[Rfam]
Notes
The record is a 61-nucleotide RNA from Helianthus annuus, which matches "Plastid-psbA-2 3UTR RNA" in Rfam. A search with the family's covariance model found it, with a score of 58 bits. About the family: Plastid psbA-2 is a non-coding RNA (ncRNA) present in plastids. It was identified in inverted repeat sequences in the 3 prime untranslate region (3UTR) of photosystem II quinone-binding protein (psbA).
RNA sequence: AAAAAGGAGCAAUAGCUUCCCUCUUGAUAAAACAAGAGGGCGUUAUUGCUCCUUUUUUAUU
Numbered sequence: 001a002a003a004a005a006g007g008a009g010c011a012a013u014a015g016c017u018u019c020c021c022u023c024u025u026g027a028u029a030a031a032a033c034a035a036g037a038g039g040g041c042g043u044u045a046u047u048g049c050u051c052c053u054u055u056u057u058u059a060u061u
Stems, first nucleotide, its partner, number of pairs: 001057016017040003022037005
The organism belongs to Helianthus, within Eukaryota. By type it is a cis-regulatory element.